[Rfam]
RNA: mir-728 microRNA precursor family
RNA sequence: AAAUGUAGUAGACUAUAAGUAUACAUUAAAAUGGGACGUAUACUAAGUACACUAUGUUUUC
Numbered sequence: 001a002a003a004u005g006u007a008g009u010a011g012a013c014u015a016u017a018a019g020u021a022u023a024c025a026u027u028a029a030a031a032u033g034g035g036a037c038g039u040a041u042a043c044u045a046a047g048u049a050c051a052c053u054a055u056g057u058u059u060u061c
Stems, first nucleotide, its partner, number of pairs: 001059009012048003018044007